[Rfam]
RNA sequence: UGCUCUGAACACGGGAGUCCGGUGAGCCGGGCUGAGAGGAAGGUUCUCCAACCUUCGACCGUCGAACCUGAUCUGGGUCAUGCCAGCGCAGGGAGGGCAUCCAUUCUCGAA
Number, nucleotide and partner (000 for none) at each position: 001u000002g000003c000004u000005c000006u099007g098008a000009a000010c095011a062012c061013g060014g059015g000016a000017g032018u031019c030020c029021g028022g000023u000024g000025a000026g000027c000028c021029g020030g019031g018032c017033u000034g000035a000036g000037a000038g000039g056040a055041a054042g053043g052044u051045u050046c000047u000048c000049c000050a045051a044052c043053c042054u041055u040056c039057g000058a000059c014060c013061g012062u011063c000064g000065a000066a000067c092068c091069u090070g089071a000072u000073c086074u085075g084076g083077g000078u000079c000080a000081u000082g000083c076084c075085a074086g073087c000088g000089c070090a069091g068092g067093g000094a000095g010096g000097g000098c007099a006100u000101c000102c000103a000104u000105u000106c000107u000108c000109g000110a000111a000